This 114-nucleotide RNA from Pongo abelii belongs to the Rfam family "Y RNA".
Rfam classes the family as a non-coding RNA gene.

[Rfam]
RNA sequence: GGCUGGUCUGAAGGCAGUGAGUUAUCUCACUUUGAUUAUUCACAGUCAGUUACAGAUAAAACACCUUGUUCUACUCUUUCCCUCCUUCUUGCUACUGCACUUGACUAAUCUUAA
Numbered sequence: 001g002g003c004u005g006g007u008c009u010g011a012a013g014g015c016a017g018u019g020a021g022u023u024a025u026c027u028c029a030c031u032u033u034g035a036u037u038a039u040u041c042a043c044a045g046u047c048a049g050u051u052a053c054a055g056a057u058a059a060a061a062c063a064c065c066u067u068g069u070u071c072u073a074c075u076c077u078u079u080c081c082c083u084c085c086u087u088c089u090u091g092c093u094a095c096u097g098c099a100c101u102u103g104a105c106u107a108a109u110c111u112u113a114a
Stems, first nucleotide, its partner, number of pairs: 001110002004107005010102002014098002016093006045075001048072002
Dot-bracket structure: ((.(((((.((..((((((((.......................(..((.....................))..)............))))))...))..))))))).))....

The match comes from Rfam's covariance-model search (62 bits). Y RNAs are components of the Ro ribonucleoprotein particle (Ro RNP), in association with Ro60 and La proteins. The Y RNAs and Ro60 and La proteins are well conserved, but the function of the Ro RNP is not known. In humans the RNA component can be one of four small RNAs -- hY1, hY3, hY4 and hY5. These small RNAs are predicted to fold into a conserved secondary structure containing three stem structures. The largest of the four, hY1, contains an additional hairpin. This family includes a significant number of annotated pseudogenes and the model is expected to discriminate poorly between real and Y RNA related pseudogenes. The family's consensus secondary structure is taken from published work.